[Rfam]
RNA sequence: GCGACUGUCUGAUAUGUUUGCUAUAUUAAGUUGUUAGCUAAAACUCAACUAUACAACAAACAUAUUUGUACAGUUUC
Numbered sequence: 001g002c003g004a005c006u007g008u009c010u011g012a013u014a015u016g017u018u019u020g021c022u023a024u025a026u027u028a029a030g031u032u033g034u035u036a037g038c039u040a041a042a043a044c045u046c047a048a049c050u051a052u053a054c055a056a057c058a059a060a061c062a063u064a065u066u067u068g069u070a071c072a073g074u075u076u077c
Stems, first nucleotide, its partner, number of pairs: 005073004011066010022055001024053002029050005
The record is a 77-nucleotide sequence from Scyliorhinus torazame, which matches "mir-190 microRNA precursor family" in Rfam. The literature on the family includes a 2006 paper in Nucleic Acids Res by Kloosterman et al., "Cloning and expression of new microRNAs from zebrafish". Lineage of the source: Eukaryota > Chordata > Elasmobranchii > Selachii > Scyliorhinus. Its Rfam clan is "mir-50 clan". It scores 65 bits against the family's covariance model.